[Rfam]
Nucleotides: 041
Base pairs, nucleotide, nucleotide: 016038017037018036019035020034021033022032023031024030025029
Number, partner (000 for none) and nucleotide at each position: 001000a002000g003000a004000g005000u006000u007000u008000g009000u010000c011000u012000a013000g014000c015000a016038g017037g018036u019035u020034u021033u022032c023031c024030a025029g026000u027000u028000u029025c030024u031023g032022g033021a034020a035019a036018a037017c038016c039000c040000c041000a
Notes
U7 small nuclear RNA: a 41-nucleotide RNA sequence from Cebus imitator.